Shown here is a 65-nucleotide RNA sequence from Neogobius melanostomus, a member of the family "MAT2A 3'UTR stem loop A".
For this family Rfam cites "New families of human regulatory RNA structures identified by comparative analysis of vertebrate genomes" (Parker et al., Genome Res, 2011).
The family's RNA type in Rfam is cis-regulatory element.
The organism belongs to Neogobius, within Eukaryota.
RNA sequence: GCUUUUUCCCCCAGGCUUGUUGGUGUAUACUACAGAGAAGCCUCCAAGUGCCAGGGGAGAAAUGC
Number, nucleotide and partner (000 for none) at each position: 001g065002c064003u062004u000005u000006u000007u058008c057009c056010c055011c000012c000013a000014g051015g000016c000017u000018u046019g045020u000021u000022g042023g041024u040025g033026u032027a000028u000029a000030c000031u000032a026033c025034a000035g000036a000037g000038a000039a000040g024041c023042c022043u000044c000045c019046a018047a000048g000049u000050g000051c014052c000053a000054g000055g010056g009057g008058a007059g000060a000061a000062a003063u000064g002065c001